[Rfam]
A member of the RNA family "tRNA" from Candidatus Synechococcus spongiarum, 72 nucleotides long.
Rfam links the family to the GO term triplet codon-amino acid adaptor activity.
The family's RNA type in Rfam is transfer RNA.
RNA sequence: GCCGGCAUAGCUCAGUGGCAGAGCAGCGCUUUUGUAAAGCGAAGGUCGUCGGUUCAAAUCCGUCUGCCGGCU
Numbered sequence: 001g002c003c004g005g006c007a008u009a010g011c012u013c014a015g016u017g018g019c020a021g022a023g024c025a026g027c028g029c030u031u032u033u034g035u036a037a038a039g040c041g042a043a044g045g046u047c048g049u050c051g052g053u054u055c056a057a058a059u060c061c062g063u064c065u066g067c068c069g070g071c072u
Base pairs, nucleotide, nucleotide: 001071002070003069004068005067006066007065010024011023012022013021027041028040029039030038048064050062051061052060
NCBI's taxonomy places the organism under Bacteria, Cyanobacteriota, Cyanophyceae, Synechococcales, Synechococcus.